The family of this 141-nucleotide RNA sequence from Actinidia chinensis is "Small nucleolar RNA snoR136". It is annotated as an H/ACA-box small nucleolar RNA. A search with the family's covariance model found it, with a score of 59 bits.

[Rfam]
RNA sequence: AUGGCUUCCUUUGUUUUUUGAAAUGGUUCCUCUGAUAAUACGUUUGGAUGGAAUUGUGUGGAAGUGAAGCUAGAACAAUGUUCCUCUCGCUAUCCAGGGCUACCCUUUAUGGUGCAUUUUGGACGUUGAGGAAAUACAUUU
Number, nucleotide and partner (000 for none) at each position: 001a000002u073003g071004g070005c069006u000007u000008c066009c000010u064011u063012u062013g000014u000015u000016u000017u058018u000019u056020g055021a000022a000023a000024u000025g000026g054027u053028u052029c051030c050031u000032c000033u047034g000035a000036u046037a045038a044039u000040a000041c000042g000043u000044u038045u037046g036047g033048a000049u000050g030051g029052a028053a027054u026055u020056g019057u000058g017059u000060g000061g000062a012063a011064g010065u000066g008067a000068a000069g005070c004071u003072a000073g002074a000075a000076c000077a000078a000079u000080g000081u133082u132083c131084c130085u129086c128087u000088c125089g124090c000091u000092a000093u123094c122095c121096a120097g119098g000099g000100c112101u111102a110103c000104c000105c000106u000107u000108u000109a000110u102111g101112g100113u000114g000115c000116a000117u000118u000119u097120u096121g095122g094123a093124c089125g088126u000127u000128g086129a085130g084131g083132a082133a081134a000135u000136a000137c000138a000139u000140u000141u000